Shown here is a 91-nucleotide RNA, a member of the family "mir-54 microRNA precursor family". A search with the family's covariance model found it, with a score of 71 bits. The family has 6 seed sequences and 13 matches in Rfam 15.1.
RNA sequence: GACGGGCCUUGACUAGGAUAUGAGAUGACGAGUGUACAUUGUAUAUUAAACUUGUACCCGUAAUCUUCAUAGUCCGAGCCAAGGCCUCGUC
Numbered sequence: 001g002a003c004g005g006g007c008c009u010u011g012a013c014u015a016g017g018a019u020a021u022g023a024g025a026u027g028a029c030g031a032g033u034g035u036a037c038a039u040u041g042u043a044u045a046u047u048a049a050a051c052u053u054g055u056a057c058c059c060g061u062a063a064u065c066u067u068c069a070u071a072g073u074c075c076g077a078g079c080c081a082a083g084g085c086c087u088c089g090u091c
Stems, first nucleotide, its partner, number of pairs: 003089002005086007013078002016075003019071006029060002032057005